[Rfam]
RNA sequence: AAUAGUGUGAGGAGCAAGUUGAAAUUAAGAGCGCUUAGAGUGGAAACACGGUAACACUUCUGAGCGCUUUUUA
Numbered sequence: 001a002a003u004a005g006u007g008u009g010a011g012g013a014g015c016a017a018g019u020u021g022a023a024a025u026u027a028a029g030a031g032c033g034c035u036u037a038g039a040g041u042g043g044a045a046a047c048a049c050g051g052u053a054a055c056a057c058u059u060c061u062g063a064g065c066g067c068u069u070u071u072u073a
Stems, first nucleotide, its partner, number of pairs: 028070005035063005040057003